A member of the RNA family "Plant signal recognition particle RNA" from Vigna angularis, 281 nucleotides long. Clan: SRP clan. The base pairs follow the family's consensus structure, which is taken from published work. NCBI's taxonomy places the organism under Eukaryota, Streptophyta, Streptophytina, Magnoliopsida, Vigna angularis.

[Rfam]
RNA sequence: GUCGAGCUGGGUUGCGUCAGCUUGUGGCCCAAGUGGGGACAUCAGAGUGAAGGAACAUAUCUGAGGCCGAGUUGGGCUGGGCUUUGCUUGCAAAAUUGCUGGCCUGUCCAAUCCAAGUUGGGAAAUGAUCCAUGUGACUAGGUUUCCCGGUUCCUAGACUUGGGGGUACUGCGUAAGGCUGAUAAUCUCGGAUUCCCAACAGUGGAGGGAAAACAGGCUGCUGCAACAUAAGCCCACUUCUAUUCUAGCCCAGUUAGCCUUCAGUUUGGACCUUCACUUUU
Numbered sequence: 001g002u003c004g005a006g007c008u009g010g011g012u013u014g015c016g017u018c019a020g021c022u023u024g025u026g027g028c029c030c031a032a033g034u035g036g037g038g039a040c041a042u043c044a045g046a047g048u049g050a051a052g053g054a055a056c057a058u059a060u061c062u063g064a065g066g067c068c069g070a071g072u073u074g075g076g077c078u079g080g081g082c083u084u085u086g087c088u089u090g091c092a093a094a095a096u097u098g099c100u101g102g103c104c105u106g107u108c109c110a111a112u113c114c115a116a117g118u119u120g121g122g123a124a125a126u127g128a129u130c131c132a133u134g135u136g137a138c139u140a141g142g143u144u145u146c147c148c149g150g151u152u153c154c155u156a157g158a159c160u161u162g163g164g165g166g167u168a169c170u171g172c173g174u175a176a177g178g179c180u181g182a183u184a185a186u187c188u189c190g191g192a193u194u195c196c197c198a199a200c201a202g203u204g205g206a207g208g209g210a211a212a213a214c215a216g217g218c219u220g221c222u223g224c225a226a227c228a229u230a231a232g233c234c235c236a237c238u239u240c241u242a243u244u245c246u247a248g249c250c251c252a253g254u255u256a257g258c259c260u261u262c263a264g265u266u267u268g269g270a271c272c273u274u275c276a277c278u279u280u281u
Stems, first nucleotide, its partner, number of pairs: 001040003004023007028037003044280010056268002059266001061264001063261005070255009079235006086227001088226003093222001100220008108209002112206004117200008127153002130150002134146001136144003160191006172181002